The family of this 268-nucleotide RNA sequence is "HIF-1 alpha IRES". A reference for the family is Lang et al. (2002), "Hypoxia-inducible factor-1alpha mRNA contains an internal ribosome entry site that allows efficient translation during normoxia and hypoxia", Mol Biol Cell. About the family: This family represents the hypoxia-inducible factor 1-alpha internal ribosome entry site. HIF-1a is a subunit of the HIF-1 transcription factor, which induces transcription of several genes involved in the cellular response to hypoxia. By type it is an internal ribosome entry site. Rfam links the family to the GO term ribosome binding. It is one of the family's seed sequences.
RNA sequence: GACAGGAGGAUCACCCUCUUAGUCGCUUCGGCCAGUGUGUCGGGCUGGGCCCUGACAAGCCACCUGAGGAGAGGCUCGGAGCCGGGCCCGGACCCCGGCGAUUGCCGCCCGCUUCUCUCUAGUCUCACGAGGGGUUUCCCGCCUCGCACCCCCACCUCUGGACUUGCCUUUCCUUCUCUUCUCCGCGUGUGGAGGGAGCCAGCGCUUAGGCCGGAGCGAGCCUGGGGGCCGCCCGCCGUGAAGACAUCGCGGGGACCGAUUCACCAUG
Number, nucleotide and partner (000 for none) at each position: 001g000002a000003c000004a020005g019006g018007a017008g016009g015010a000011u000012c000013a000014c000015c009016c008017u007018c006019u005020u004021a000022g050023u049024c048025g000026c000027u000028u000029c000030g000031g000032c000033c000034a000035g000036u000037g000038u000039g000040u000041c000042g000043g000044g000045c000046u000047g000048g024049g023050c022051c000052c000053u000054g000055a000056c000057a000058a000059g000060c000061c000062a000063c000064c000065u000066g000067a000068g000069g000070a000071g137072a136073g135074g000075c134076u000077c000078g000079g000080a000081g000082c000083c000084g000085g000086g000087c000088c000089c000090g000091g000092a000093c000094c000095c000096c000097g000098g000099c000100g000101a000102u000103u000104g000105c000106c000107g000108c000109c000110c000111g000112c000113u000114u000115c133116u132117c131118u130119c129120u000121a000122g000123u000124c000125u000126c000127a000128c000129g119130a118131g117132g116133g115134g075135u073136u072137u071138c000139c000140c000141g000142c000143c000144u000145c000146g000147c000148a000149c000150c000151c000152c000153c000154a000155c000156c000157u000158c000159u000160g000161g000162a000163c000164u202165u201166g200167c000168c198169u197170u196171u195172c000173c000174u000175u000176c000177u193178c192179u191180u000181c000182u000183c000184c000185g000186c000187g000188u000189g000190u000191g179192g178193a177194g000195g171196g170197a169198g168199c000200c166201a165202g164203c000204g000205c000206u000207u000208a000209g000210g000211c000212c235213g234214g233215a000216g232217c231218g230219a000220g000221c000222c000223u000224g000225g000226g000227g000228g000229c000230c218231g217232c216233c214234c213235g212236c000237c000238g000239u000240g000241a000242a000243g000244a000245c000246a000247u000248c000249g000250c000251g000252g000253g000254g000255a000256c000257c000258g000259a000260u000261u000262c000263a000264c000265c000266a000267u000268g000